The record is a 132-nucleotide RNA from Mus spicilegus, which matches "Small nucleolar RNA SNORA17" in Rfam.
RNA sequence: UGUGCUCCAAGAGACAUUAUAGGUGUGGCUACUGUAUUAUAUGUGAAUCAAUAAGUGGCAAAGAGCUGAGAGGGUACACGUAUGCUUAGUGUUCUGAUUUAUGAACAUCCAAAUGAUUAGUAGCCUAACUUG
Numbered sequence: 001u002g003u004g005c006u007c008c009a010a011g012a013g014a015c016a017u018u019a020u021a022g023g024u025g026u027g028g029c030u031a032c033u034g035u036a037u038u039a040u041a042u043g044u045g046a047a048u049c050a051a052u053a054a055g056u057g058g059c060a061a062a063g064a065g066c067u068g069a070g071a072g073g074g075u076a077c078a079c080g081u082a083u084g085c086u087u088a089g090u091g092u093u094c095u096g097a098u099u100u101a102u103g104a105a106c107a108u109c110c111a112a113a114u115g116a117u118u119a120g121u122a123g124c125c126u127a128a129c130u131u132g
Base pairs, nucleotide, nucleotide: 003060004059005058006057007055010052013049014048020045021044024041025040026039027038028037068129071126072125073124075122076121077120083115084114086112087111089109090107091106092105093104094103

snoRNA ACA 17 belongs to the H/ACA family of snoRNAs and is predicted to guide pseudouridylation of the 28S rRNA at positions U4659 and U4598. It shares the same host gene together with ACA43. NB This family has a high threshold value to exclude a large number of closely related sequences that do not appear to have conserved H and ACA boxes, and may be pseudogenes. Rfam links the family to the GO terms RNA processing and nucleolus. The literature on the family includes a 1997 paper in J Mol Biol by Ofengand and Bakin, "Mapping to nucleotide resolution of pseudouridine residues in large subunit ribosomal RNAs from representative eukaryotes, prokaryotes, archaebacteria, mitochondria and chloroplasts". Clan: SNORA17 clan.